The family of this 72-nucleotide RNA from Alligator mississippiensis is "Mammalian CPEB3 ribozyme". The mammalian CPEB3 ribozyme is a self cleaving RNA located in the second intron of the CPEB3 gene which belongs to a family of genes regulating messenger RNA polyadenylation.

[Rfam]
RNA sequence: UGAGAAUUUGAGGCCAUAGCAGAAGCACUUCAUGGCAUGAAGUCAGAUCCCAAAGCAUCUGUGAAUUCUGCU
Numbered sequence: 001u002g003a004g005a006a007u008u009u010g011a012g013g014c015c016a017u018a019g020c021a022g023a024a025g026c027a028c029u030u031c032a033u034g035g036c037a038u039g040a041a042g043u044c045a046g047a048u049c050c051c052a053a054a055g056c057a058u059c060u061g062u063g064a065a066u067u068c069u070g071c072u
Base pairs, nucleotide, nucleotide: 013036014035015034018072019071020070021069022068023067024066025033044061045060046059047058048057050055